[Rfam]
RNA sequence: CAGCAUGAGAAAUAUCUGUUUCUCAUUCUUUUAGGAAUAGGAAUAUGUCCAUAAUAUACUACACUGAAAAAAGGAGUAAGCAGGGCUGCCAACCUUACUUACAAUGAGGUUAAACAGUAGUAUAUUUUUCCUACAUAA
Numbered sequence: 001c002a003g004c005a006u007g008a009g010a011a012a013u014a015u016c017u018g019u020u021u022c023u024c025a026u027u028c029u030u031u032u033a034g035g036a037a038u039a040g041g042a043a044u045a046u047g048u049c050c051a052u053a054a055u056a057u058a059c060u061a062c063a064c065u066g067a068a069a070a071a072a073g074g075a076g077u078a079a080g081c082a083g084g085g086c087u088g089c090c091a092a093c094c095u096u097a098c099u100u101a102c103a104a105u106g107a108g109g110u111u112a113a114a115c116a117g118u119a120g121u122a123u124a125u126u127u128u129u130c131c132u133a134c135a136u137a138a
Stems, first nucleotide, its partner, number of pairs: 003059001005057003015041008073131004085118002091111006